[Rfam]
A member of the RNA family "J750 non-coding RNA (containing SLSL761 and SL783)", 113 nucleotides long. It is one of the family's seed sequences. The family's consensus secondary structure was predicted with RNAfold.
RNA sequence: AUACCCGUCGUAGGAGGCCCCUUAGGGGGUGUCGCUGCAGCCUUAGCUCACGGAGUGAGGGCUGUCGAGGACGGGUUAAAUUAUGCAACCGGGAAUCUCCCCGGUUGCUCCUU
Numbered sequence: 001a002u003a004c005c006c007g008u009c010g011u012a013g014g015a016g017g018c019c020c021c022u023u024a025g026g027g028g029g030u031g032u033c034g035c036u037g038c039a040g041c042c043u044u045a046g047c048u049c050a051c052g053g054a055g056u057g058a059g060g061g062c063u064g065u066c067g068a069g070g071a072c073g074g075g076u077u078a079a080a081u082u083a084u085g086c087a088a089c090c091g092g093g094a095a096u097c098u099c100c101c102c103g104g105u106u107g108c109u110c111c112u113u
Base pairs, nucleotide, nucleotide: 001077004074005073007072008071009070013033014032016030018028019026020025035067037065038064039063040062041061042060043059044058046056047055048054049053085108086107087106088105089104091102092101093100